[Rfam]
RNA sequence: UCACAAUCGGGAUCAGUGGAUCCCCAUUGUGA
Numbered sequence: 001u002c003a004c005a006a007u008c009g010g011g012a013u014c015a016g017u018g019g020a021u022c023c024c025c026a027u028u029g030u031g032a
Stems, first nucleotide, its partner, number of pairs: 001032007009025003012021002014018001